A member of the RNA family "MIR5084 microRNA precursor family" from Triticum aestivum, 122 nucleotides long. NCBI's taxonomy places the organism under Eukaryota, Streptophytina, Tracheophyta, Petrosaviidae, Triticum. Rfam links the family to the GO terms miRNA-mediated post-transcriptional gene silencing and RISC complex.
[Rfam]
RNA sequence: AACCGGGUUGAGAUCCUCUGCAGUAUCGUAUGGUGCUGUAGUGUGGAUGACAUGUGGGGCCAGGUCCCACGUAGCAGUGACUGUACAGCACCGUACAGUACUACAGAGGAUCCUAACCCGUC
Numbered sequence: 001a002a003c004c005g006g007g008u009u010g011a012g013a014u015c016c017u018c019u020g021c022a023g024u025a026u027c028g029u030a031u032g033g034u035g036c037u038g039u040a041g042u043g044u045g046g047a048u049g050a051c052a053u054g055u056g057g058g059g060c061c062a063g064g065u066c067c068c069a070c071g072u073a074g075c076a077g078u079g080a081c082u083g084u085a086c087a088g089c090a091c092c093g094u095a096c097a098g099u100a101c102u103a104c105a106g107a108g109g110a111u112c113c114u115a116a117c118c119c120g121u122c
Stems, first nucleotide, its partner, number of pairs: 004120006012112009022102005028096013052072009